[Rfam]
RNA sequence: GCCGACGUAGCUCAGCGGUAGAGCAUCCGCUUCGUAAGCGGGUGGUCGGGGGUUCAAAUCCCUCCGUCGGCA
Numbered sequence: 001g002c003c004g005a006c007g008u009a010g011c012u013c014a015g016c017g018g019u020a021g022a023g024c025a026u027c028c029g030c031u032u033c034g035u036a037a038g039c040g041g042g043u044g045g046u047c048g049g050g051g052g053u054u055c056a057a058a059u060c061c062c063u064c065c066g067u068c069g070g071c072a
Base pairs, nucleotide, nucleotide: 001071002070003069004068005067006066007065010024011023012022013021026042027041028040029039030038048064049063050062051061052060
A member of the RNA family "tRNA" from Pseudolabrys taiwanensis, 72 nucleotides long. Lineage of the source: Bacteria > Alphaproteobacteria > Hyphomicrobiales > Xanthobacteraceae > Pseudolabrys. The family's RNA type in Rfam is transfer RNA. The family's consensus secondary structure is taken from published work. Transfer RNA (tRNA) molecules are approximately 80 nucleotides in length. Their secondary structure includes four short double-helical elements and three loops (D, anti-codon, and T loops).